Record summary
Eukaryotic large subunit ribosomal RNA: a 542-nucleotide part of an RNA from Plasmodium falciparum. The source organism's lineage runs through Eukaryota, Sar, Apicomplexa, Aconoidasida and Plasmodium falciparum. Rfam links the family to the GO terms ribosome and structural constituent of ribosome. The sequence is in the family's curated seed alignment.
RNA sequence: UAGAAAAAAGUAAGUAAGGGAAGUCGGCAAAAUAGAUCCGUAACUUCGGGAAAAGGAUUGGCUCUGAGGACAUUAGAAAAGAGAAGAAAAAAAAGGGGGUUGAAAAUAAAAUUACAGAUUUAUUUGCUUUAUCUUUUCGAUUUGGUUGUAAAUUUGUUUUUCGUUUUUCUUCUUUGUUUUUAUUCUGUUCCUGUUUUCGCUUUCAUUUUAUUGUAAUUUUAGUUACUUAAAUUUUUUGAUAUAUAUAAUGUUAACUCAGAACUGAAACGGACAAGGGGAAUCCGACUGUUUAAUUAAAACAUAGCAUUGUGAAAAACCAUAACUGGUAUUAACACAAUGUGAUUUCUGCCCAGUGCUUUGAAUGUUAAGUUGAUGAAAAAUUCAAUUAAGCGCAGGUAAACGGCGGGAGUAACUAUGACUCUCUUAAGGUAGCCAAAUGCCUCGUCAUCUAAUUAGUGACGCGCAUGAAUGGAUUAACGAGAUUCCCACUGUCCCUACUUGCUAUCUAGCGAAACCACAGCCAAGGGAACGGGCUUGGCAAA
Numbered sequence: 001u002a003g004a005a006a007a008a009a010g011u012a013a014g015u016a017a018g019g020g021a022a023g024u025c026g027g028c029a030a031a032a033u034a035g036a037u038c039c040g041u042a043a044c045u046u047c048g049g050g051a052a053a054a055g056g057a058u059u060g061g062c063u064c065u066g067a068g069g070a071c072a073u074u075a076g077a078a079a080a081g082a083g084a085a086g087a088a089a090a091a092a093a094a095g096g097g098g099g100u101u102g103a104a105a106a107u108a109a110a111a112u113u114a115c116a117g118a119u120u121u122a123u124u125u126g127c128u129u130u131a132u133c134u135u136u137u138c139g140a141u142u143u144g145g146u147u148g149u150a151a152a153u154u155u156g157u158u159u160u161u162c163g164u165u166u167u168u169c170u171u172c173u174u175u176g177u178u179u180u181u182a183u184u185c186u187g188u189u190c191c192u193g194u195u196u197u198c199g200c201u202u203u204c205a206u207u208u209u210a211u212u213g214u215a216a217u218u219u220u221a222g223u224u225a226c227u228u229a230a231a232u233u234u235u236u237u238g239a240u241a242u243a244u245a246u247a248a249u250g251u252u253a254a255c256u257c258a259g260a261a262c263u264g265a266a267a268c269g270g271a272c273a274a275g276g277g278g279a280a281u282c283c284g285a286c287u288g289u290u291u292a293a294u295u296a297a298a299a300c301a302u303a304g305c306a307u308u309g310u311g312a313a314a315a316a317c318c319a320u321a322a323c324u325g326g327u328a329u330u331a332a333c334a335c336a337a338u339g340u341g342a343u344u345u346c347u348g349c350c351c352a353g354u355g356c357u358u359u360g361a362a363u364g365u366u367a368a369g370u371u372g373a374u375g376a377a378a379a380a381u382u383c384a385a386u387u388a389a390g391c392g393c394a395g396g397u398a399a400a401c402g403g404c405g406g407g408a409g410u411a412a413c414u415a416u417g418a419c420u421c422u423c424u425u426a427a428g429g430u431a432g433c434c435a436a437a438u439g440c441c442u443c444g445u446c447a448u449c450u451a452a453u454u455a456g457u458g459a460c461g462c463g464c465a466u467g468a469a470u471g472g473a474u475u476a477a478c479g480a481g482a483u484u485c486c487c488a489c490u491g492u493c494c495c496u497a498c499u500u501g502c503u504a505u506c507u508a509g510c511g512a513a514a515c516c517a518c519a520g521c522c523a524a525g526g527g528a529a530c531g532g533g534c535u536u537g538g539c540a541a542a
Base pairs, nucleotide, nucleotide: 001508002507003506004505009503010502011501012500013499014498015497016496018494019493020492035059036058037057038056039055044049060263061262063260064259065258066257067256068255069252070251071250072240073239074238075237076236077235078234079233080232081190082189083188085186086185087184088183094178095177097175098173099172102169103168104167105166106165110161111160114157115156116155117154118153119152120151121150122149123148264268276487277486278485279484280483281482282481283479284478287301288300289299304340305339306338307337308336309335310334311333314329316327317326318325319324344473345472346471348404349403350402353401354400355397356396357395358394360393363392364391365390370385371384372383373382405423406422407421408420409419410418424428444460445459446458447457448456521538522537523536524535525534